[Rfam]
RNA sequence: GGUAGUAGCAAUUAUUCAAAUGAGAAUUUUGAAGGCCGAAGUGGAGAAGGUUUCCGUGAGAACAGCAAUUGGUCACGGGUGACUCGAUCCUAAGACAUGGGGGAAAUCCUUGUUAAGUGAGCCGUUGGCUCGUAGUCGAAAGGGAAUGAGGUUAAUAUUCCUCAAGCUGGAUGUGGGUGUUGUAUGGCAACAUAAGUGAGCUCAGAGACGCCAGCGUGAACCUCUGGAAGAGUUAUCUUUUCUUUUUAACAGACUAGCGACCCUGAAAUUGGAUUACCCAGAGCUAGGGUUGUAUGUCUGGAAGAGCACCUUGCUUUUCGAGGUGUCAGGUGCGUUCACGAUGGUCCAUGAAAAUCUGAGUGAGAUAAUUUCACACCAGGUCGUACCCAUAACCGCAUCAGGUCUCCAAGGUUAGCAGCCUCUGGCCAAC
Number, nucleotide and partner (000 for none) at each position: 001g000002g000003u000004a000005g000006u000007a000008g000009c000010a000011a000012u000013u000014a000015u033016u032017c031018a030019a029020a028021u000022g000023a000024g000025a000026a000027u000028u020029u019030u018031g017032a016033a015034g427035g426036c425037c424038g000039a000040a000041g000042u000043g407044g406045a405046g404047a000048a000049g387050g386051u000052u000053u000054c078055c077056g076057u075058g074059a073060g000061a000062a000063c071064a070065g000066c000067a000068a000069u000070u064071g063072g000073u059074c058075a057076c056077g055078g054079g000080u000081g000082a000083c000084u000085c383086g382087a381088u000089c143090c142091u000092a000093a000094g137095a136096c112097a111098u000099g000100g109101g108102g107103g000104a000105a000106a000107u102108c101109c100110u000111u097112g096113u000114u000115a000116a000117g000118u000119g131120a130121g129122c000123c000124g000125u000126u000127g000128g000129c121130u120131c119132g000133u000134a000135g000136u095137c094138g000139a000140a000141a000142g090143g089144g000145a000146a000147u164148g163149a162150g161151g160152u000153u000154a000155a000156u000157a000158u000159u000160c151161c150162u149163c148164a147165a000166g000167c379168u378169g377170g376171a000172u375173g374174u373175g372176g371177g369178u368179g000180u000181u000182g000183u194184a193185u192186g191187g000188c000189a000190a000191c186192a185193u184194a183195a000196g000197u000198g000199a000200g000201c360202u359203c358204a357205g356206a355207g000208a000209c000210g345211c344212c343213a342214g000215c340216g339217u338218g337219a336220a335221c334222c000223u330224c329225u328226g246227g245228a244229a243230g242231a241232g000233u000234u000235a000236u000237c000238u000239u000240u000241u231242c230243u229244u228245u227246u226247u000248a000249a000250c300251a299252g298253a297254c296255u000256a000257g000258c000259g000260a290261c289262c288263c287264u286265g285266a000267a000268a000269u281270u280271g279272g278273a000274u000275u000276a000277c000278c272279c271280a270281g269282a000283g000284c000285u265286a264287g263288g262289g261290u260291u000292g000293u000294a000295u000296g254297u253298c252299u251300g250301g000302a000303a000304g000305a000306g000307c325308a324309c323310c322311u321312u320313g319314c000315u000316u000317u000318u000319c313320g312321a311322g310323g309324u308325g307326u000327c000328a225329g224330g223331u000332g000333c000334g221335u220336u219337c218338a217339c216340g215341a000342u213343g212344g211345u210346c000347c000348a000349u000350g000351a000352a000353a000354a000355u206356c205357u204358g203359a202360g201361u000362g000363a000364g000365a000366u000367a000368a178369u177370u000371u176372c175373a174374c173375a172376c170377c169378a168379g167380g000381u087382c086383g085384u000385a000386c050387c049388c000389a000390u000391a000392a000393c402394c401395g000396c000397a000398u000399c000400a000401g394402g393403u000404c046405u045406c044407c043408a000409a421410g420411g419412u418413u000414a000415g000416c000417a000418g412419c411420c410421u409422c000423u000424g037425g036426c035427c034428a000429a000430c000